A member of the RNA family "mir-971 microRNA precursor family" from Operophtera brumata, 77 nucleotides long. Gene Ontology terms of the family: miRNA-mediated post-transcriptional gene silencing and RISC complex. Pairs were carried over by alignment from the consensus structure, which was predicted with RNAalifold.
[Rfam]
RNA sequence: AUCUCUGAUCACUCUAAGUAUGAACGCCAAGCGUUUUGGAUAAAGUUUGGUGUUCUACCUUACAGUGAAUCGAGGCU
Numbered sequence: 001a002u003c004u005c006u007g008a009u010c011a012c013u014c015u016a017a018g019u020a021u022g023a024a025c026g027c028c029a030a031g032c033g034u035u036u037u038g039g040a041u042a043a044a045g046u047u048u049g050g051u052g053u054u055c056u057a058c059c060u061u062a063c064a065g066u067g068a069a070u071c072g073a074g075g076c077u
Stems, first nucleotide, its partner, number of pairs: 006072003009068005015062003025052008